[Rfam]
RNA sequence: GGCACGGGGUGCUUAUCUUGGUAGAUGAGGGCGGACUUCAGAUCCGUCGAGUUCCGUUGGAAUUCGGGGUUCGAUUCCCCCCCUGCGCC
Numbered sequence: 001g002g003c004a005c006g007g008g009g010u011g012c013u014u015a016u017c018u019u020g021g022u023a024g025a026u027g028a029g030g031g032c033g034g035a036c037u038u039c040a041g042a043u044c045c046g047u048c049g050a051g052u053u054c055c056g057u058u059g060g061a062a063u064u065c066g067g068g069g070u071u072c073g074a075u076u077c078c079c080c081c082c083c084u085g086c087g088c089c
Stems, first nucleotide, its partner, number of pairs: 001089003005085005012029006030048006050064005066080004
Shown here is an 89-nucleotide RNA from Methanococcus maripaludis, a member of the family "Selenocysteine transfer RNA". The family is grouped with related families in Rfam's "tRNA clan". The base pairs follow the family's consensus structure, which is taken from published work. NCBI's taxonomy places the organism under Archaea, Methanobacteriati, Methanococcales, Methanococcaceae, Methanococcus. It scores 61 bits against the family's covariance model.